Shown here is a 62-nucleotide sequence from Leptotrombidium deliense, a member of the family "Selenocysteine insertion sequence 1". Rfam describes the family as follows. The incorporation of selenocysteine into a protein sequence is directed by an in-frame UGA codon (usually a stop codon) within the coding region of the mRNA. Selenoprotein mRNAs contain a conserved secondary structure in the 3' UTR that is required for the distinction of UGA stop from UGA selenocysteine. The selenocysteine insertion sequence (SECIS) is around 60 nt in length and adopts a hairpin structure which is sufficiently well-defined and conserved to act as a computational screen for selenoprotein genes.
[Rfam]
RNA sequence: UUCUCUUUCUAUGAUAAAUAGUCUUAAAAACUUUGGAAGAGACUAUUUUGAAGCUUUGAGAC
Dot-bracket structure: .((((..........((((((((((......(....).)))))))))).........)))).
NCBI's taxonomy places the organism under Eukaryota, Opisthokonta, Protostomia, Arthropoda, Leptotrombidium.